[Rfam]
RNA sequence: GGACCAAAUUUGAAGUAGAGUAGAUCAGUAGUAUCAGUUAACUCUUCUAAUCUACUGUACUUCAAAUUUGGGCCC
Numbered sequence: 001g002g003a004c005c006a007a008a009u010u011u012g013a014a015g016u017a018g019a020g021u022a023g024a025u026c027a028g029u030a031g032u033a034u035c036a037g038u039u040a041a042c043u044c045u046u047c048u049a050a051u052c053u054a055c056u057g058u059a060c061u062u063c064a065a066a067u068u069u070g071g072g073c074c075c
Base pairs, nucleotide, nucleotide: 001074002073004071005070006069007068008067009066011064012063013062014061015060016059017058019056020055021054022053023052025050027048028047030045034041